Shown here is a 74-nucleotide RNA sequence from Conger conger, a member of the family "mir-551 microRNA precursor family".
Gene Ontology terms of the family: RISC complex and miRNA-mediated post-transcriptional gene silencing.
Pairs were carried over by alignment from the consensus structure, which was predicted with RNAalifold.
The literature on the family includes a 2008 paper in Gene by Shao et al., "Identification of novel chicken microRNAs and analysis of their genomic organization".
RNA sequence: AGACCCCCGAAGUCAGGCAUGGGUGGAGCCUGUUCCCCAGCCGUCAGGCGACCCACUCCUGAUUUCGGGGGUCA
Numbered sequence: 001a002g003a004c005c006c007c008c009g010a011a012g013u014c015a016g017g018c019a020u021g022g023g024u025g026g027a028g029c030c031u032g033u034u035c036c037c038c039a040g041c042c043g044u045c046a047g048g049c050g051a052c053c054c055a056c057u058c059c060u061g062a063u064u065u066c067g068g069g070g071g072u073c074a
Stems, first nucleotide, its partner, number of pairs: 002073006009066006016059002021054004028049004